[Rfam]
RNA sequence: CCGACCUAGUGCAGCGAACGUGAAGCCGCUGCGGCGAAACGGCGUGAUUUCCGCAGUGGUUUC
Numbered sequence: 001c002c003g004a005c006c007u008a009g010u011g012c013a014g015c016g017a018a019c020g021u022g023a024a025g026c027c028g029c030u031g032c033g034g035c036g037a038a039a040c041g042g043c044g045u046g047a048u049u050u051c052c053g054c055a056g057u058g059g060u061u062u063c
Stems, first nucleotide, its partner, number of pairs: 022063013039045001
RNA: Mycobacterium sRNA Ms_IGR-8
Organism: Mycolicibacterium thermoresistibile